This 59-nucleotide sequence from Bifidobacterium aemilianum belongs to the Rfam family "msiK RNA".
The family's consensus secondary structure is taken from published work.
It is annotated as a cis-regulatory element.
Rfam 15.1 lists 1,374 matches to the family in 1,364 species.
[Rfam]
RNA sequence: ACGUAGAACCUCUCACAACGGAUCGUUCGGCACGUACCUGCCGAUGAAAGGAAUCACUA
Numbered sequence: 001a002c003g004u005a006g007a008a009c010c011u012c013u014c015a016c017a018a019c020g021g022a023u024c025g026u027u028c029g030g031c032a033c034g035u036a037c038c039u040g041c042c043g044a045u046g047a048a049a050g051g052a053a054u055c056a057c058u059a
Base pairs, nucleotide, nucleotide: 009051010050011049013047014046015045027044028043029042030041031040032039